[Rfam]
RNA sequence: CUGGGUUACGGUGACAUGUACCCGCAGACGUGGUCGGGCAUGCUGGUGGGCGCGCUGUGCGCCCUGGCGGGCGUGCUGACGAUAGCCAUGCCUGUGCCCGUCAUCGUCAAUAAC
Numbered sequence: 001c002u003g004g005g006u007u008a009c010g011g012u013g014a015c016a017u018g019u020a021c022c023c024g025c026a027g028a029c030g031u032g033g034u035c036g037g038g039c040a041u042g043c044u045g046g047u048g049g050g051c052g053c054g055c056u057g058u059g060c061g062c063c064c065u066g067g068c069g070g071g072c073g074u075g076c077u078g079a080c081g082a083u084a085g086c087c088a089u090g091c092c093u094g095u096g097c098c099c100g101u102c103a104u105c106g107u108c109a110a111u112a113a114c
Stems, first nucleotide, its partner, number of pairs: 002113001004111001008107004013102003018097004037077004049063003
Overview
Rfam assigns this 114-nucleotide RNA from Salmo trutta to the family "Potassium channel RNA editing signal". The family's consensus secondary structure is taken from published work. Rfam describes the family as follows. This family represents a group of sequences related to the human potassium channel Kv1.1 hairpin element which directs the efficient modification of an adenosine to inosine by an adenosine deaminase acting on RNA (ADAR). Rfam links the family to the GO term adenosine to inosine editing. The organism belongs to Salmo, within Eukaryota.